The record is a 61-nucleotide RNA, which matches "L2-Alphaproteobacteria ribosomal protein leader" in Rfam. The base pairs follow the family's consensus structure, which is taken from published work. A reference for the family is Eckert and Weinberg (2020), "Discovery of 20 novel ribosomal leader candidates in bacteria and archaea", BMC Microbiol. The sequence is in the family's curated seed alignment.
RNA sequence: GGGGACCUUCGGGGCCCUUUACCACAUAGGCCUCGCAAGAGGCCGCCAAGCAAACGGAAGA
Number, nucleotide and partner (000 for none) at each position: 001g018002g017003g016004g015005a000006c014007c013008u012009u000010c000011g000012g008013g007014g006015c004016c003017c002018u001019u000020u000021a000022c000023c000024a000025c000026a000027u000028a000029g044030g043031c042032c041033u040034c039035g000036c000037a000038a000039g034040a033041g032042g031043c030044c029045g000046c000047c000048a000049a000050g000051c000052a000053a000054a000055c000056g000057g000058a000059a000060g000061a000